Rfam assigns this 58-nucleotide sequence from Luzuriaga radicans to the family "Plastid-psbA-4 3UTR RNA". For this family Rfam cites "Retrograde signaling in plants: A critical review focusing on the GUN pathway and beyond" (Richter et al., Plant Commun, 2023).

RNA sequence: AAAAGGAGCAAUACCAAACCCCCUGUUCUAGCAAGGGGUUUGGUAUUGCUCCUUUACC
Numbered sequence: 001a002a003a004a005g006g007a008g009c010a011a012u013a014c015c016a017a018a019c020c021c022c023c024u025g026u027u028c029u030a031g032c033a034a035g036g037g038g039u040u041u042g043g044u045a046u047u048g049c050u051c052c053u054u055u056a057c058c
Stems, first nucleotide, its partner, number of pairs: 002055012017040002020037003024033002
The sequence is in the family's curated seed alignment. The organism belongs to Luzuriaga, within Eukaryota. Rfam classes the family as a cis-regulatory element. Plastid psbA-4 is a non-coding RNA (ncRNA) present in plastids. It was identified in inverted repeat sequences in the 3 prime untranslate region (3UTR) of photosystem II quinone-binding protein (psbA).